RNA: mir-544 microRNA precursor family
RNA sequence: UCACCUGGAUAGCUUGUUAAAAUGCAGAUUCCACUUCAGUGGGCCUGGGAUUCUGCAUUUCUAACAAGUUCCCAGGUGUUGCGAA
Numbered sequence: 001u002c003a004c005c006u007g008g009a010u011a012g013c014u015u016g017u018u019a020a021a022a023u024g025c026a027g028a029u030u031c032c033a034c035u036u037c038a039g040u041g042g043g044c045c046u047g048g049g050a051u052u053c054u055g056c057a058u059u060u061c062u063a064a065c066a067a068g069u070u071c072c073c074a075g076g077u078g079u080u081g082c083g084a085a
Stems, first nucleotide, its partner, number of pairs: 002078003008072001013068007020060003024056005030050003